[Rfam]
This 89-nucleotide RNA sequence belongs to the Rfam family "chrB-a RNA".
RNA sequence: UUUAAGGGGAAAUCGCGAAUGCCCCGUGAGGCGUCAGCCGAAAAUUCGCAUCCUUGUAACCCUUUGUUUGAAAGGAAGGAUGCGCUAUG
Number, nucleotide and partner (000 for none) at each position: 001u000002u000003u000004a000005a000006g025007g024008g023009g022010a000011a000012a000013u000014c000015g000016c000017g000018a000019a000020u000021g000022c009023c008024c007025c006026g000027u000028g000029a000030g000031g000032c000033g000034u000035c000036a000037g000038c000039c000040g000041a000042a000043a000044a000045u000046u000047c000048g083049c082050a081051u080052c079053c078054u077055u076056g000057u000058a000059a000060c000061c000062c000063u000064u000065u000066g000067u000068u000069u000070g000071a000072a000073a000074g000075g000076a055077a054078g053079g052080a051081u050082g049083c048084g000085c000086u000087a000088u000089g000